[Rfam]
RNA sequence: GGGAUAGCUCCGGCUGCACUGCCUGACCCCCGACCCGGCAGUUCGGCCGGAGCUUUCAU
Numbered sequence: 001g002g003g004a005u006a007g008c009u010c011c012g013g014c015u016g017c018a019c020u021g022c023c024u025g026a027c028c029c030c031c032g033a034c035c036c037g038g039c040a041g042u043u044c045g046g047c048c049g050g051a052g053c054u055u056u057c058a059u
Base pairs, nucleotide, nucleotide: 003057004056007053008052009051010050011049012048013047014046015045016044018042019041020040021039022038023037